[Rfam]
RNA sequence: UUCCCCAAGGAGCGUUGCAGCGGGCUGGGCGACCUCCCGUCAGGCUUGGGGCUUUUCUCUUGGCAACGACGCUCGCCUGUC
Numbered sequence: 001u002u003c004c005c006c007a008a009g010g011a012g013c014g015u016u017g018c019a020g021c022g023g024g025c026u027g028g029g030c031g032a033c034c035u036c037c038c039g040u041c042a043g044g045c046u047u048g049g050g051g052c053u054u055u056u057c058u059c060u061u062g063g064c065a066a067c068g069a070c071g072c073u074c075g076c077c078u079g080u081c
Stems, first nucleotide, its partner, number of pairs: 003051006021039004
Rfam assigns this 81-nucleotide sequence from Alicycliphilus denitrificans to the family "SAH (S-adenosyl-L-homocysteine) riboswitch aptamer". For this family Rfam cites "Riboswitches that sense S-adenosylhomocysteine and activate genes involved in coenzyme recycling" (Wang et al., Mol Cell, 2008). The family's consensus secondary structure is taken from published work. The match comes from Rfam's covariance-model search (54 bits). The source organism's lineage runs through Bacteria, Pseudomonadati, Comamonadaceae, Alicycliphilus and Alicycliphilus denitrificans.